[Rfam]
RNA sequence: CACACGCAGACUUUGGGGUGUUCCGGGAGAAAUCCGGAUCGUUCCGCCGGUGUCAGGUAUCUUUGGGUCCCUGUUCUACGGUCUGCGGAGGUUCAACCGGAAAAGGAGAAAAGGC
Dot-bracket structure: (.(.(((((((...((......((.(........)))......))......(.((((............)))).).....)))))))).).........................
RNA: rpsB sRNA